[Rfam]
RNA sequence: UGGGUCGGCUGGACGGCCGCGUGCCGCUUCGGCGGCCCGAGGAACGUCCGGGCUCCACAGAACAGGGUGGUGGGUAACGCCCACUCGGGGUAACCCGCAGGACAGUGCCACAGAAAACAGACCGCCUGCCGCAUGCGGCAGGUAAGGGUGAAACGGCGGUGUAAGAGACCACCAGCGGCCCAGGCGACUGGGCCGGCUAGGUAAACCCCACCCGGAGCAAGGUCAGACAGGCCGCGCCACGAGGGCUGUUCGCCCCAGCGGCCGGGUAGACCGCUUGAGGCCAGCGGCAACGCUGGUCCUAGAUGGAUGGCCGUCACCCGCGUCCGGGAAACCGGGCCCGGGAACAAAACCCGGCGUACAGGCCGGCCCAUCCC
Numbered sequence: 001u002g003g004g005u006c007g008g009c010u011g012g013a014c015g016g017c018c019g020c021g022u023g024c025c026g027c028u029u030c031g032g033c034g035g036c037c038c039g040a041g042g043a044a045c046g047u048c049c050g051g052g053c054u055c056c057a058c059a060g061a062a063c064a065g066g067g068u069g070g071u072g073g074g075u076a077a078c079g080c081c082c083a084c085u086c087g088g089g090g091u092a093a094c095c096c097g098c099a100g101g102a103c104a105g106u107g108c109c110a111c112a113g114a115a116a117a118c119a120g121a122c123c124g125c126c127u128g129c130c131g132c133a134u135g136c137g138g139c140a141g142g143u144a145a146g147g148g149u150g151a152a153a154c155g156g157c158g159g160u161g162u163a164a165g166a167g168a169c170c171a172c173c174a175g176c177g178g179c180c181c182a183g184g185c186g187a188c189u190g191g192g193c194c195g196g197c198u199a200g201g202u203a204a205a206c207c208c209c210a211c212c213c214g215g216a217g218c219a220a221g222g223u224c225a226g227a228c229a230g231g232c233c234g235c236g237c238c239a240c241g242a243g244g245g246c247u248g249u250u251c252g253c254c255c256c257a258g259c260g261g262c263c264g265g266g267u268a269g270a271c272c273g274c275u276u277g278a279g280g281c282c283a284g285c286g287g288c289a290a291c292g293c294u295g296g297u298c299c300u301a302g303a304u305g306g307a308u309g310g311c312c313g314u315c316a317c318c319c320g321c322g323u324c325c326g327g328g329a330a331a332c333c334g335g336g337c338c339c340g341g342g343a344a345c346a347a348a349a350c351c352c353g354g355c356g357u358a359c360a361g362g363c364c365g366g367c368c369c370a371u372c373c374c
Stems, first nucleotide, its partner, number of pairs: 001370010011359001012315007020039002023036005044357003048354005053217004060251004065213005070084005085099001086097004100208002105206002107202003122147002124143008155173002158170003175197001176195008221272004230263006243255004279298008
A member of the RNA family "Bacterial RNase P class A" from Zafaria cholistanensis, 374 nucleotides long.
By type it is a ribozyme.
Lineage of the source: Bacteria > Actinomycetota > Actinomycetes > Micrococcales > Zafaria.
The base pairs follow the family's consensus structure, which is taken from published work.